[Rfam]
RNA sequence: CCGCAGCCAGGGCGGCCUCACGGAAGGCCUGGACACUGAUAAGCCGGCAAGUGCAGUGCUUCGCAAAACACCGGCCGCC
Number, nucleotide and partner (000 for none) at each position: 001c015002c014003g013004c012005a000006g000007c032008c031009a030010g029011g028012g004013c003014g002015g001016c023017c022018u000019c000020a000021c000022g017023g016024a000025a000026g000027g000028c011029c010030u009031g008032g007033a000034c058035a057036c056037u055038g054039a000040u000041a000042a000043g075044c074045c073046g072047g071048c000049a000050a000051g000052u000053g000054c038055a037056g036057u035058g034059c000060u000061u000062c000063g000064c000065a000066a000067a000068a000069c000070a000071c047072c046073g045074g044075c043076c000077g000078c000079c000
The record is a 79-nucleotide RNA sequence, which matches "Proteo-phage-1 RNA" in Rfam.
The family's consensus secondary structure is taken from published work.